[Rfam]
RNA sequence: AGGGGUGUAGUUCAAAUAGGUAGAACGUCGGUCUCCAAAACCGGGUGUUAGGAGUUCAAGUCUCUUCACCCCUG
Numbered sequence: 001a002g003g004g005g006u007g008u009a010g011u012u013c014a015a016a017u018a019g020g021u022a023g024a025a026c027g028u029c030g031g032u033c034u035c036c037a038a039a040a041c042c043g044g045g046u047g048u049u050a051g052g053a054g055u056u057c058a059a060g061u062c063u064c065u066u067c068a069c070c071c072c073u074g
Stems, first nucleotide, its partner, number of pairs: 001073007010026004028044005050066005
RNA: tRNA
Organism: Candidatus Blochmanniella pennsylvanica